A member of the RNA family "Bacterial large subunit ribosomal RNA" from Aeromicrobium flavum, 359 nucleotides of a longer RNA. Rfam links the family to the GO terms ribosome and structural constituent of ribosome.
RNA sequence: CGAGAGAAUCAUGGUUAAGGAACUCGGCAAAAUGCCCCCGUAACUUCGGGAGAAGGGGGGCCGGAUACGUCAACGGACUUGCUCCGUGAAGCGUUGAAGGCCGCAGAGACCAGGCCCAAGCGACUGUUUACUAAAAACACAGGUCCAUGCUAAGUCGAAAGACGCCGUAUAUGGACUGACUCCUGCCCGGUGCUGGAAGGUUAAGGGGACGUGUUAGCGCAAGCGAAGCACAGAACUUAAGCCCCAGUAAACGGCGGUGGUAACUAUAACCAUCCUAAGGUAGCGAAAUUCCUUGUCGGGUAAGUUCCGACCUGCACGAAUGGAGUAACGACUUGGGCGCUGUCUCAACCAUGAACUCG
Numbered sequence: 001c002g003a004g005a006g007a008a009u010c011a012u013g014g015u016u017a018a019g020g021a022a023c024u025c026g027g028c029a030a031a032a033u034g035c036c037c038c039c040g041u042a043a044c045u046u047c048g049g050g051a052g053a054a055g056g057g058g059g060g061c062c063g064g065a066u067a068c069g070u071c072a073a074c075g076g077a078c079u080u081g082c083u084c085c086g087u088g089a090a091g092c093g094u095u096g097a098a099g100g101c102c103g104c105a106g107a108g109a110c111c112a113g114g115c116c117c118a119a120g121c122g123a124c125u126g127u128u129u130a131c132u133a134a135a136a137a138c139a140c141a142g143g144u145c146c147a148u149g150c151u152a153a154g155u156c157g158a159a160a161g162a163c164g165c166c167g168u169a170u171a172u173g174g175a176c177u178g179a180c181u182c183c184u185g186c187c188c189g190g191u192g193c194u195g196g197a198a199g200g201u202u203a204a205g206g207g208g209a210c211g212u213g214u215u216a217g218c219g220c221a222a223g224c225g226a227a228g229c230a231c232a233g234a235a236c237u238u239a240a241g242c243c244c245c246a247g248u249a250a251a252c253g254g255c256g257g258u259g260g261u262a263a264c265u266a267u268a269a270c271c272a273u274c275c276u277a278a279g280g281u282a283g284c285g286a287a288a289u290u291c292c293u294u295g296u297c298g299g300g301u302a303a304g305u306u307c308c309g310a311c312c313u314g315c316a317c318g319a320a321u322g323g324a325g326u327a328a329c330g331a332c333u334u335g336g337g338c339g340c341u342g343u344c345u346c347a348a349c350c351a352u353g354a355a356c357u358c359g
Stems, first nucleotide, its partner, number of pairs: 001359004009354008018345003035059005044049001060101003073087005102106001114338007121330002125139003142177008150167001154163003180325004185255003190252002192248005199243003205237002211231004217224002256274006275279001285312001295311006